[Rfam]
RNA sequence: GAGCUAUGAGGAUGAUACUCUCCUGUGAUGGGUGGGUCUAUCACUUUCAUCUGAUUCACAGAUGAUAAUGAGUGCUGCUGAGCUC
Dot-bracket structure: ((((.............................................................................))))
RNA: small nucleolar RNA snoR114
Organism: Ricinus communis